Shown here is a 104-nucleotide RNA sequence from Chanos chanos, a member of the family "mir-454 microRNA precursor family". Gene Ontology terms of the family: miRNA-mediated post-transcriptional gene silencing and RISC complex. Lineage of the source: Eukaryota > Craniata > Teleostomi > Actinopteri > Chanos. The literature on the family includes a 2005 paper in Genes Dev by Chen et al., "The developmental miRNA profiles of zebrafish as determined by small RNA cloning".
RNA sequence: CAGACGUCACCUCAUGGACGUGACCCUAUCAGUAUUGCUUCUGCUUUUCGCUAAGUGAAUGGAGUAGUGCAAUAUUGCUUAUAGGGUCUUGACUUUGAGGACUG
Numbered sequence: 001c002a003g004a005c006g007u008c009a010c011c012u013c014a015u016g017g018a019c020g021u022g023a024c025c026c027u028a029u030c031a032g033u034a035u036u037g038c039u040u041c042u043g044c045u046u047u048u049c050g051c052u053a054a055g056u057g058a059a060u061g062g063a064g065u066a067g068u069g070c071a072a073u074a075u076u077g078c079u080u081a082u083a084g085g086g087u088c089u090u091g092a093c094u095u096u097g098a099g100g101a102c103u104g
Base pairs, nucleotide, nucleotide: 020090022088023087024086025085026084027083028082029081030077031076032075033074034073035072036071037070038069041067042066043065044064045062

The match comes from Rfam's covariance-model search (72 bits).